[Rfam]
RNA sequence: ACGUAGCUUAAACGUUUGGUUCACAUACAUCUGCCUGCUGCCUUGGCAUAAUAUCAAAAAGGCAUAAACAUCGCACAAUAAUGGUUAAUACGGCUAUGAGGAUGGUUUUAGUACGUAGGCGUUGCGGAACUUCGGUUCAGAUAGAGCAAUGAAUCGUGCAUGCUAGGAAACUGACCAAAUGGUGGCAGCCCUAGUAUCUUUCGAAGAUUUCCAUACCUUUGCGAUC
Numbered sequence: 001a002c003g004u005a006g007c008u009u010a011a012a013c014g015u016u017u018g019g020u021u022c023a024c025a026u027a028c029a030u031c032u033g034c035c036u037g038c039u040g041c042c043u044u045g046g047c048a049u050a051a052u053a054u055c056a057a058a059a060a061g062g063c064a065u066a067a068a069c070a071u072c073g074c075a076c077a078a079u080a081a082u083g084g085u086u087a088a089u090a091c092g093g094c095u096a097u098g099a100g101g102a103u104g105g106u107u108u109u110a111g112u113a114c115g116u117a118g119g120c121g122u123u124g125c126g127g128a129a130c131u132u133c134g135g136u137u138c139a140g141a142u143a144g145a146g147c148a149a150u151g152a153a154u155c156g157u158g159c160a161u162g163c164u165a166g167g168a169a170a171c172u173g174a175c176c177a178a179a180u181g182g183u184g185g186c187a188g189c190c191c192u193a194g195u196a197u198c199u200u201u202c203g204a205a206g207a208u209u210u211c212c213a214u215a216c217c218u219u220u221g222c223g224a225u226c
Stems, first nucleotide, its partner, number of pairs: 039064006070225005098219004103213003111159005120151006127138004161196006
Dot-bracket structure: ......................................((((((..............)))))).....(((((.......................((((.(((.....(((((....((((((.((((....)))).......))))))...))))).((((((........................))))))..............)))..)))).))))).
Shown here is a 226-nucleotide sequence from Drosophila teissieri, a member of the family "R2 RNA element". The family has 15 seed sequences and 3,698 matches in Rfam 15.1. The literature on the family includes a 2004 paper in RNA by Ruschak et al., "Secondary structure models of the 3' untranslated regions of diverse R2 RNAs". This family represents the 3' UTR region of the R2 retrotransposable element. This family is known to interact with the R2-encoded reverse transcriptase in a reaction known as target primed reverse transcription (TPRT). The organism belongs to Sophophora, within Eukaryota.